[Rfam]
RNA sequence: GAUCAGCAAUAGGGCAUAGGUGACACAAGGCAGUUGUCACGACGGAACUCUGUGCCCGGAAGACUUGCAAAGGUACUUUCCCUUCC
Numbered sequence: 001g002a003u004c005a006g007c008a009a010u011a012g013g014g015c016a017u018a019g020g021u022g023a024c025a026c027a028a029g030g031c032a033g034u035u036g037u038c039a040c041g042a043c044g045g046a047a048c049u050c051u052g053u054g055c056c057c058g059g060a061a062g063a064c065u066u067g068c069a070a071a072g073g074u075a076c077u078u079u080c081c082c083u084u085c086c
Stems, first nucleotide, its partner, number of pairs: 013056007020040006
A member of the RNA family "HTH-XRE RNA", 86 nucleotides long. The family's RNA type in Rfam is cis-regulatory element. The family's consensus secondary structure is taken from published work.